[Rfam]
RNA sequence: ACAUCGGAAGGAGGUGGUCCCAGACAUGAAGUUCACUCGGACUCGUGAGGUGGCUGUCCGCUAGUCGCCACCAGCAUCGACCAGCCCUGCUGGUCGAGGACCAGCGCGCAAGGUCGCGCUGGCAGCUGACGGACGAACCGGUUGUCAGUACUCGCCGGCCCCGCACCGCCACGCGGUGGGCGGCAGCGAAUACCAGGCAGUCACCGGAGCCCGUGGGUGCCGCGAUCUCGUCCUUCGCGGUAGGUGGAGCGAUCCACCAGCCCACGGGCUCUUCCAU
Numbered sequence: 001a002c003a004u005c006g007g008a009a010g011g012a013g014g015u016g017g018u019c020c021c022a023g024a025c026a027u028g029a030a031g032u033u034c035a036c037u038c039g040g041a042c043u044c045g046u047g048a049g050g051u052g053g054c055u056g057u058c059c060g061c062u063a064g065u066c067g068c069c070a071c072c073a074g075c076a077u078c079g080a081c082c083a084g085c086c087c088u089g090c091u092g093g094u095c096g097a098g099g100a101c102c103a104g105c106g107c108g109c110a111a112g113g114u115c116g117c118g119c120u121g122g123c124a125g126c127u128g129a130c131g132g133a134c135g136a137a138c139c140g141g142u143u144g145u146c147a148g149u150a151c152u153c154g155c156c157g158g159c160c161c162c163g164c165a166c167c168g169c170c171a172c173g174c175g176g177u178g179g180g181c182g183g184c185a186g187c188g189a190a191u192a193c194c195a196g197g198c199a200g201u202c203a204c205c206g207g208a209g210c211c212c213g214u215g216g217g218u219g220c221c222g223c224g225a226u227c228u229c230g231u232c233c234u235u236c237g238c239g240g241u242a243g244g245u246g247g248a249g250c251g252a253u254c255c256a257c258c259a260g261c262c263c264a265c266g267g268g269c270u271c272u273u274c275c276a277u
Stems, first nucleotide, its partner, number of pairs: 013058006059188004065182001067181003072176001074174001207271012220240006